[Rfam]
RNA sequence: GUAAUAUAAGAUACGGUCUCUUAACUUUUAACUAAAAAAGCUAAGAGACGUCUCUUAAAUAAGAGAUAUAAGAGACGUCUCUUAGCUUUUUUAGUUAAAAACUAAAAGACUAUAUCUCGUAUUAC
Numbered sequence: 001g002u003a004a005u006a007u008a009a010g011a012u013a014c015g016g017u018c019u020c021u022u023a024a025c026u027u028u029u030a031a032c033u034a035a036a037a038a039a040g041c042u043a044a045g046a047g048a049c050g051u052c053u054c055u056u057a058a059a060u061a062a063g064a065g066a067u068a069u070a071a072g073a074g075a076c077g078u079c080u081c082u083u084a085g086c087u088u089u090u091u092u093a094g095u096u097a098a099a100a101a102c103u104a105a106a107a108g109a110c111u112a113u114a115u116c117u118c119g120u121a122u123u124a125c
Stems, first nucleotide, its partner, number of pairs: 001125007009117005015111005021105003026100014041085007

Rfam assigns this 125-nucleotide RNA sequence from Brassica oleracea to the family "MIR9563 microRNA precursor family". Gene Ontology terms of the family: miRNA-mediated post-transcriptional gene silencing and RISC complex. Taxonomically the source falls in Brassica oleracea (Eukaryota, Pentapetalae, malvids, Brassicaceae). The match comes from Rfam's covariance-model search (102 bits). The family's consensus secondary structure was predicted with RNAalifold.